[Rfam]
RNA sequence: CAUCGGGGAGUAGCCUGCCGCGGCGAGACGCCGCGGUGUCCGCGUCAACACGCUUGGCCCACCGGCCAUGGCGCGGACGGCGAGAAGCCCGGCGAGACCUUUGGCU
Number, nucleotide and partner (000 for none) at each position: 001c000002a000003u000004c000005g000006g000007g000008g000009a000010g000011u000012a000013g000014c000015c000016u000017g000018c036019c035020g034021c033022g032023g031024c030025g029026a000027g000028a000029c025030g024031c023032c022033g021034c020035g019036g018037u000038g078039u077040c076041c075042g074043c073044g072045u071046c070047a069048a000049c000050a000051c000052g000053c000054u000055u068056g067057g066058c065059c064060c000061a000062c000063c000064g059065g058066c057067c056068a055069u047070g046071g045072c044073g043074c042075g041076g040077a039078c038079g000080g000081c000082g000083a000084g000085a000086a000087g000088c000089c000090c000091g000092g000093c000094g000095a000096g000097a000098c000099c000100u000101u000102u000103g000104g000105c000106u000